[Rfam]
A member of the RNA family "SAM riboswitch aptamer (S box leader)" from Heyndrickxia shackletonii, 115 nucleotides long.
Taxonomically the source falls in Heyndrickxia (Bacteria, Bacillota, Bacilli, Caryophanales).

Nucleotides: 115
Stems, first nucleotide, its partner, number of pairs: 001115008013041001015040003021031003025081004042073004047069002050064003077107001082104009
Number, partner (000 for none) and nucleotide at each position: 001115c002114u003113c004112u005111u006110a007109u008108c009000a010000a011000g012000a013041g014000a015040g016039g017038u018000g019000g020000a021031g022030g023029g024000a025081u026080g027079u028078g029023c030022c031021c032000u033000a034000u035000g036000a037000a038017a039016c040015c041013c042073g043072g044071c045070a046000a047069c048068c049000a050064u051063c052062a053000g054000u055000u056000c057000a058000u059000a060000a061000c062052u063051g064050a065000a066000a067000u068048g069047g070045u071044g072043c073042c074000a075000a076000u077107u078028c079027a080026c081025a082104c083103a084102a085101a086100a087099c088098a089097a090096u091000c092000u093000u094000g095000u096090a097089u098088u099087g100086u101085u102084u103083u104082g105000g106000a107077a108008g109007a110006u111005g112004a113003g114002a115001g